[Rfam]
RNA: Ribosomal S15 leader
RNA sequence: UUGGGUUGCUGAAUUAGAGAUCGGCACCCGUUUAAUUAUCUAUAAUAUUUUGGAGUAAGAUUAUGUCUCUAAGCGUUGAAGCUAAGGCUCAGAUCGUUUCCGACUUCGGUCGCGGCACU
Numbered sequence: 001u002u003g004g005g006u007u008g009c010u011g012a013a014u015u016a017g018a019g020a021u022c023g024g025c026a027c028c029c030g031u032u033u034a035a036u037u038a039u040c041u042a043u044a045a046u047a048u049u050u051u052g053g054a055g056u057a058a059g060a061u062u063a064u065g066u067c068u069c070u071a072a073g074c075g076u077u078g079a080a081g082c083u084a085a086g087g088c089u090c091a092g093a094u095c096g097u098u099u100c101c102g103a104c105u106u107c108g109g110u111c112g113c114g115g116c117a118c119u
Base pairs, nucleotide, nucleotide: 007026008025009024010023011022012021049073050072051071052070053069054068055067